[Rfam]
RNA: Pyrobac-1 RNA
RNA sequence: AGCGCCGGGACUACGCCGGGUGAGAGCGGCUGGCGCCGCACUGUGGGCCCGGCGGGGUGCCU
Number, nucleotide and partner (000 for none) at each position: 001a000002g000003c000004g000005c000006c000007g000008g000009g000010a000011c055012u000013a000014c054015g053016c052017c051018g050019g049020g048021u047022g000023a000024g000025a000026g039027c038028g037029g036030c035031u000032g000033g000034c000035g030036c029037c028038g027039c026040a000041c000042u000043g000044u000045g000046g000047g021048c020049c019050c018051g017052g016053c015054g014055g011056g000057g000058u000059g000060c000061c000062u000